Record summary: Rfam assigns this 110-nucleotide RNA sequence from Miscanthus lutarioriparius to the family "Small nucleolar RNA Z278". Rfam's curators write: snoZ278 is a C/D box small nucleolar RNA. Its methylation guide targets have not been reported. NCBI's taxonomy places the organism under Eukaryota, Streptophytina, Embryophyta, Andropogoneae, Miscanthus. A reference for the family is Chen et al. (2003), "The high diversity of snoRNAs in plants: identification and comparative study of 120 snoRNA genes from Oryza sativa", Nucleic Acids Res.

RNA sequence: ACCUAUGAUGAGUUGCCCAACAUGUGAGGUGUAGGUAACUCAAGCCCUGAUUCAGGAGAACCUACUUGGGGUCCUACAUUCAAAUGAGAUACACAGGCAUUUACUGGGGU
Numbered sequence: 001a002c003c004u005a006u007g008a009u010g011a012g013u014u015g016c017c018c019a020a021c022a023u024g025u026g027a028g029g030u031g032u033a034g035g036u037a038a039c040u041c042a043a044g045c046c047c048u049g050a051u052u053c054a055g056g057a058g059a060a061c062c063u064a065c066u067u068g069g070g071g072u073c074c075u076a077c078a079u080u081c082a083a084a085u086g087a088g089a090u091a092c093a094c095a096g097g098c099a100u101u102u103a104c105u106g107g108g109g110u
Stems, first nucleotide, its partner, number of pairs: 001110003046056004